The family of this 130-nucleotide RNA sequence from Parafrankia flexibilis is "FMN riboswitch aptamer (RFN element)".
Pairs were carried over by alignment from the consensus structure, which is taken from published work.
[Rfam]
RNA sequence: ACGCGCGCUCCGGGGUCGGUGGAAAUCCGAGCCGGCGGUGAUAGUCCGCGACCCGUCCAUCCUGUGAUGGCCGGUUGACCUGGUGGAAUUCCAGGACCGACGGUGAAAGUCCGGAUGGGAGGACGCGCGC
Numbered sequence: 001a002c003g004c005g006c007g008c009u010c011c012g013g014g015g016u017c018g019g020u021g022g023a024a025a026u027c028c029g030a031g032c033c034g035g036c037g038g039u040g041a042u043a044g045u046c047c048g049c050g051a052c053c054c055g056u057c058c059a060u061c062c063u064g065u066g067a068u069g070g071c072c073g074g075u076u077g078a079c080c081u082g083g084u085g086g087a088a089u090u091c092c093a094g095g096a097c098c099g100a101c102g103g104u105g106a107a108a109g110u111c112c113g114g115a116u117g118g119g120a121g122g123a124c125g126c127g128c129g130c
Base pairs, nucleotide, nucleotide: 003128004127005126006125007124009122010121017029018028019027031110032109033099034098035049036048037047038046044097045096053074054073079095080094081093082092083091101113102112103111
Dot-bracket structure: ..(((((.((......(((.......))).[[((((((.....[[))))...((..................))....(((((.......)))))]])).(((.....]]))).......)).)))))..